[Rfam]
RNA: t44 RNA
RNA sequence: CAGGCAAAGAACCAAAAACACACGCUGGUCGACACAUGCGUCGGGGUUGUCCCGCCUUUACGGGCUGAGGAUCGCCGCAUGGGAUCAGCGGAGGCCUAAA
Dot-bracket structure: ......................((((((((....((((((.((.....((((................)))))).)))))).))))))))..........